[Rfam]
RNA sequence: AUGCACCAGAUACGGACACGACUGUCCUCAGCCCAGUGCAUCCUGGUGCCUGAGUUCCGUGACUGUUGGGUUUUAAGAAAGGUGCCACAGAAACAUCAGCCCUGAUAUUUAAGCUCAGGAGUGCACUCUUGAGUUAUGGCUCAGAGGCACAUGG
Numbered sequence: 001a002u003g004c005a006c007c008a009g010a011u012a013c014g015g016a017c018a019c020g021a022c023u024g025u026c027c028u029c030a031g032c033c034c035a036g037u038g039c040a041u042c043c044u045g046g047u048g049c050c051u052g053a054g055u056u057c058c059g060u061g062a063c064u065g066u067u068g069g070g071u072u073u074u075a076a077g078a079a080a081g082g083u084g085c086c087a088c089a090g091a092a093a094c095a096u097c098a099g100c101c102c103u104g105a106u107a108u109u110u111a112a113g114c115u116c117a118g119g120a121g122u123g124c125a126c127u128c129u130u131g132a133g134u135u136a137u138g139g140c141u142c143a144g145a146g147g148c149a150c151a152u153g154g
Stems, first nucleotide, its partner, number of pairs: 003085005015072003020067003024063003027054005032048001034045003099148003118127002129144006

Annotation:
Shown here is a 154-nucleotide RNA from Salvelinus namaycush, a member of the family "Small Cajal body specific RNA 1". Rfam's curators write: scaRNAs are a specific class of small nuclear RNAs which localise to the Cajal bodies and guide the modification of RNA polymerase II transcribed spliceosomal RNAs U1, U2, U4, U5 and U12. ACA35 belong to the H/ACA box class of guide RNAs as it has the predicted hairpin-hinge-hairpin-tail structure, conserved H/ACA-box motifs and is found associated with GAR1. It is predicted to guide pseudouridylation of the U2 spliceosomal snRNA at residue U89. It scores 57 bits against the family's covariance model. Lineage of the source: Eukaryota > Eumetazoa > Bilateria > Vertebrata > Salvelinus.